Shown here is a 115-nucleotide RNA from Trifolium subterraneum, a member of the family "MIR2593 microRNA precursor family". The organism belongs to Trifolium, within Eukaryota. It scores 100 bits against the family's covariance model. Pairs were carried over by alignment from the consensus structure, which was predicted with RNAalifold. Rfam 15.1 lists 1,262 matches to the family in 6 species.

RNA sequence: AUAUAAGCAAAAACUACUUUUUUAGAUUCAUUGAAAAAGUGAUGUAUCUUGUCUAUGAUUUGGACUAGAUACAUCACUUUUUCAAUGAAUCUAAAAAAGUAACUUUUGCUUAUAU
Number, nucleotide and partner (000 for none) at each position: 001a000002u114003a113004u112005a111006a110007g109008c000009a107010a106011a105012a104013a000014c000015u101016a100017c099018u098019u097020u096021u095022u094023u093024a092025g091026a000027u089028u088029c087030a086031u085032u084033g083034a082035a081036a080037a079038a078039g077040u076041g075042a074043u073044g072045u000046a000047u000048c000049u067050u000051g065052u064053c000054u000055a000056u000057g000058a000059u000060u000061u000062g000063g000064a052065c051066u000067a049068g000069a000070u000071a000072c044073a043074u042075c041076a040077c039078u038079u037080u036081u035082u034083c033084a032085a031086u030087g029088a028089a027090u000091c025092u024093a023094a022095a021096a020097a019098a018099g017100u016101a015102a000103c000104u012105u011106u010107u009108g000109c007110u006111u005112a004113u003114a002115u000